[Rfam]
RNA sequence: CACCAAACCUUCUAGUCAGGAUGUUUUCCGUUCCUUGAGGACGACAAAAAAAAUACGAAAGUGUCUGUUACUGUUUUGGAAGAUCAACGCCGCUUACUUUUCUCCGGCCGUAUCCGUUUUGGAUACACUUCGGGGAAAAUUUGGUGGGUAAUUGUCGUCUUGAUAAUAUGCCACCGCUUUUAAGAGCAGCAAGGCCAUCGAUUAACAGAGGUCGGGGAGGCUUGUCUUGAUCGACAGCUAUCUGCCACGAACUCGAAAAUCGAAGGCCGAACAU
Numbered sequence: 001c002a003c004c005a006a007a008c009c010u011u012c013u014a015g016u017c018a019g020g021a022u023g024u025u026u027u028c029c030g031u032u033c034c035u036u037g038a039g040g041a042c043g044a045c046a047a048a049a050a051a052a053a054u055a056c057g058a059a060a061g062u063g064u065c066u067g068u069u070a071c072u073g074u075u076u077u078g079g080a081a082g083a084u085c086a087a088c089g090c091c092g093c094u095u096a097c098u099u100u101u102c103u104c105c106g107g108c109c110g111u112a113u114c115c116g117u118u119u120u121g122g123a124u125a126c127a128c129u130u131c132g133g134g135g136a137a138a139a140u141u142u143g144g145u146g147g148g149u150a151a152u153u154g155u156c157g158u159c160u161u162g163a164u165a166a167u168a169u170g171c172c173a174c175c176g177c178u179u180u181u182a183a184g185a186g187c188a189g190c191a192a193g194g195c196c197a198u199c200g201a202u203u204a205a206c207a208g209a210g211g212u213c214g215g216g217g218a219g220g221c222u223u224g225u226c227u228u229g230a231u232c233g234a235c236a237g238c239u240a241u242c243u244g245c246c247a248c249g250a251a252c253u254c255g256a257a258a259a260u261c262g263a264a265g266g267c268c269g270a271a272c273a274u
Stems, first nucleotide, its partner, number of pairs: 003079005019066010029043005090189001092187004098139008110126006143175005151167007193268004198263004208254001210253003214248001216246002220238003224235003
Annotation: A member of the RNA family "Small nucleolar RNA snR191" from Lachancea lanzarotensis, 274 nucleotides long. Its family is annotated with RNA processing and nucleolus in the Gene Ontology. The organism belongs to Lachancea, within Eukaryota. The family's consensus secondary structure was predicted with WAR. Its Rfam clan is "SNORA74 clan".